The record is a 260-nucleotide RNA from Amphibacillus xylanus, which matches "BsrG" in Rfam.
RNA sequence: UAGUGUAAUAAGGCUUUUAUGGGUGGUGGCUUUCUCCCUUUUAUUUUGAAAGGGGGUGAGCGGAUGACAGUAUAUGAAGCAUUAGUUGUUGCGAUUUCUUUUAGCACAUUAAUUGUCGCAGUGUUGUCAUUUCACCAUAAAAAAUAACCACCCCUUGGCCUGACAAGCUUUUUGUGGUGGUUAUUUUUCUACCUAAAUGAGUGAGUCGCCCCCUUAAAGGGCUAUUGCACAACGGCUGAAGUGGUGUUGCAGCACUACUU
Number, nucleotide and partner (000 for none) at each position: 001u232002a000003g230004u229005g000006u227007a226008a225009u000010a223011a000012g207013g206014c205015u204016u203017u158018u157019a156020u000021g154022g153023g152024u000025g149026g148027u147028g000029g000030c000031u000032u058033u000034c056035u000036c055037c054038c053039u052040u051041u050042u049043a000044u000045u000046u000047u000048g000049a042050a041051a040052g039053g038054g037055g036056g034057u000058g032059a000060g000061c000062g000063g000064a000065u000066g128067a127068c126069a125070g124071u123072a122073u000074a000075u000076g000077a000078a000079g000080c093081a000082u000083u000084a000085g000086u000087u000088g000089u000090u000091g000092c000093g080094a000095u000096u000097u000098c000099u000100u000101u000102u000103a000104g119105c118106a000107c000108a000109u000110u000111a000112a000113u000114u000115g000116u000117c000118g105119c104120a000121g000122u072123g071124u070125u069126g068127u067128c066129a000130u000131u000132u000133c000134a000135c000136c000137a000138u000139a000140a000141a000142a000143a000144a000145u000146a000147a027148c026149c025150a000151c000152c023153c022154c021155u000156u019157g018158g017159c000160c000161u000162g000163a000164c000165a000166a000167g000168c000169u197170u196171u195172u000173u000174g000175u000176g000177g000178u000179g000180g000181u000182u000183a000184u000185u000186u000187u000188u000189c000190u000191a000192c000193c000194u000195a171196a170197a169198u000199g000200a000201g000202u000203g016204a015205g014206u013207c012208g222209c221210c220211c219212c000213c000214u000215u000216a000217a000218a000219g211220g210221g209222c208223u010224a000225u008226u007227g006228c000229a004230c003231a000232a001233c000234g000235g000236c000237u000238g000239a260240a259241g258242u257243g256244g255245u254246g253247u252248u000249g000250c000251a000252g247253c246254a245255c244256u243257a242258c241259u240260u239
Rfam 15.1 lists 614 matches to the family in 343 species. The source organism's lineage runs through Bacteria, Bacillota, Bacilli, Amphibacillus and Amphibacillus xylanus. From the family's description: bsrE, bsrG and bsrH pair through intermolecular interactions with antisense sRNAs. They form type I toxin/antitoxin system that includes an mRNA encoding for a short, toxic peptide (bsrE, bsrG and bsrH) and an antitoxin that is comprised of an antisense RNA. bsrG encodes a 39-amino-acid toxin, and the 180 nucleotide antisense sRNA called SR4 acts as the antitoxin (they overlap by 123 nucleotides). SR4 interaction with the 3'UTR of bsrG RNA promotes bsrG degradation and inhibits its translation. A reference for the family is Meissner et al. (2016), "In Vitro Characterization of the Type I Toxin-Antitoxin System bsrE/SR5 from Bacillus subtilis", J Biol Chem.